[Rfam]
RNA sequence: CCGUGCUAGACGGGGAGUUAGCGGUUCCUUGUAACCCGCAAUCCGCUAUAGCGGGGUUUAAUUCCUUUGAUGAGGAUCUGGUUGUCGGAGCAGUCCAUGUCUGGAUGUGAUGAGUUUCUGGUCUUGCGCAACGGAACGCUUUGAACCGUGUCAGAUCCUGACGGAAGCAGCACUAAGGAGUUAGUUCUGUGUGCCGCGAGGUCACCGGGAAUGAGCAUUCGAGCAGGGUUAACGUCCGGAGGCUAUGGUUCGAUCAAAGGUGCACGG
Number, nucleotide and partner (000 for none) at each position: 001c267002c266003g265004u264005g263006c262007u000008a059009g058010a057011c056012g030013g029014g028015g027016a026017g025018u024019u023020a000021g000022c000023g019024g018025u017026u016027c015028c014029u013030u012031g000032u000033a000034a000035c055036c054037c053038g052039c051040a000041a000042u000043c000044c000045g000046c000047u000048a000049u000050a000051g039052c038053g037054g036055g035056g011057u010058u009059u008060a000061a000062u000063u000064c260065c259066u258067u257068u256069g255070a254071u000072g000073a000074g251075g250076a249077u248078c247079u000080g244081g243082u242083u241084g000085u239086c238087g237088g236089a235090g000091c000092a000093g230094u000095c000096c227097a000098u225099g224100u223101c000102u000103g000104g220105a219106u217107g216108u215109g000110a000111u000112g000113a000114g212115u211116u210117u209118c208119u207120g206121g205122u204123c200124u199125u198126g197127c196128g195129c191130a190131a000132c189133g188134g187135a186136a185137c000138g181139c180140u179141u178142u177143g000144a000145a000146c000147c000148g173149u172150g171151u170152c000153a000154g000155a000156u165157c164158c163159u000160g000161a000162c000163g158164g157165a156166a000167g000168c000169a000170g151171c150172a149173c148174u000175a000176a000177g142178g141179a140180g139181u138182u000183a000184g000185u136186u135187c134188u133189g132190u130191g129192u000193g000194c000195c128196g127197c126198g125199a124200g123201g000202u000203c000204a122205c121206c120207g119208g118209g117210a116211a115212u114213g000214a000215g108216c107217a106218u000219u105220c104221g000222a000223g100224c099225a098226g000227g096228g000229u000230u093231a000232a000233c000234g000235u089236c088237c087238g086239g085240a000241g083242g082243c081244u080245a000246u000247g078248g077249u076250u075251c074252g000253a000254u070255c069256a068257a067258a066259g065260g064261u000262g006263c005264a004265c003266g002267g001
Description
The family of this 267-nucleotide sequence from Dehalobacter sp. 12DCB1 is "Bacterial large signal recognition particle RNA". The match comes from Rfam's covariance-model search (190 bits). The organism belongs to Dehalobacter, within Bacteria. About the family: The signal recognition particle (SRP) is a universally conserved ribonucleoprotein involved in the co-translational targeting of proteins to membranes.